[Rfam]
RNA sequence: GGUUGCAACAUCCCCGUGGAUUGGGUGAGGGCCGAAAGGCCACACAGCGAAUCGACUGCAACU
Numbered sequence: 001g002g003u004u005g006c007a008a009c010a011u012c013c014c015c016g017u018g019g020a021u022u023g024g025g026u027g028a029g030g031g032c033c034g035a036a037a038g039g040c041c042a043c044a045c046a047g048c049g050a051a052u053c054g055a056c057u058g059c060a061a062c063u
Base pairs, nucleotide, nucleotide: 001063002062003061004060005059006058007057013049014047016056017055019053020052021051022050023048025045026044027043029041031040032039